The family of this 130-nucleotide RNA sequence is "Streptomyces RNA 5676". Rfam classes the family as a small RNA. The base pairs follow the family's consensus structure. On this family, see Vockenhuber et al., RNA Biol 2011: "Deep sequencing-based identification of small non-coding RNAs in Streptomyces coelicolor".
[Rfam]
RNA sequence: AGAUGAGAGAAACACCCCGCCCGCAGGGGACUGCCGGCGACACCGGGUCGGAGCUCCCCCAGCACCGUCCUGGUUGUGCCUUCGCGCACACCACUGGAGCCUCGGGCUCCGGAACUCCUCACCGAUCGGA
Numbered sequence: 001a002g003a004u005g006a007g008a009g010a011a012a013c014a015c016c017c018c019g020c021c022c023g024c025a026g027g028g029g030a031c032u033g034c035c036g037g038c039g040a041c042a043c044c045g046g047g048u049c050g051g052a053g054c055u056c057c058c059c060c061a062g063c064a065c066c067g068u069c070c071u072g073g074u075u076g077u078g079c080c081u082u083c084g085c086g087c088a089c090a091c092c093a094c095u096g097g098a099g100c101c102u103c104g105g106g107c108u109c110c111g112g113a114a115c116u117c118c119u120c121a122c123c124g125a126u127c128g129g130a
Stems, first nucleotide, its partner, number of pairs: 004121004009117002018039004023034004042074006049067003053063002076089004094112008122129002